This 84-nucleotide RNA from Paractinoplanes tereljensis belongs to the Rfam family "tRNA". It scores 46 bits against the family's covariance model. NCBI's taxonomy places the organism under Bacteria, Actinomycetota, Actinomycetes, Micromonosporales, Paractinoplanes. By type it is a transfer RNA.

RNA sequence: GCGGGAGUGGCGUAAUUGGCAGCCGCGCGGGUUUUAGGUGCCCGUGCCCGAAAGGGCGUAGGGGUUCAAGUCCCCUCUUCCGCA
Numbered sequence: 001g002c003g004g005g006a007g008u009g010g011c012g013u014a015a016u017u018g019g020c021a022g023c024c025g026c027g028c029g030g031g032u033u034u035u036a037g038g039u040g041c042c043c044g045u046g047c048c049c050g051a052a053a054g055g056g057c058g059u060a061g062g063g064g065u066u067c068a069a070g071u072c073c074c075c076u077c078u079u080c081c082g083c084a
Stems, first nucleotide, its partner, number of pairs: 001083007010026003028044005060076005